Source information: Peptidase-S11 RNA: an 84-nucleotide sequence from Citrobacter freundii.
[Rfam]
Nucleotides: 084
Stems, first nucleotide, its partner, number of pairs: 015047003019044009048063006
Number, partner (000 for none) and nucleotide at each position: 001000g002000c003000u004000a005000u006000g007000a008000u009000g010000c011000c012000u013000g014000a015047g016046c017045u018000a019044g020043c021042u022041u023040g024039a025038g026037a027036u028000a029000a030000u031000a032000c033000u034000u035000a036027g037026u038025c039024u040023c041022a042021g043020g044019c045017g046016g047015u048063g049062u050061g051060c052059g053058u054000u055000g056000u057000g058053a059052c060051g061050u062049g063048c064000g065000u066000g067000a068000a069000c070000c071000a072000u073000u074000a075000u076000c077000a078000g079000a080000a081000a082000u083000c084000u
The source organism's lineage runs through Bacteria, Pseudomonadati, Enterobacteriaceae, Citrobacter freundii complex and Citrobacter freundii. The base pairs follow the family's consensus structure, which is taken from published work. The family's RNA type in Rfam is cis-regulatory element.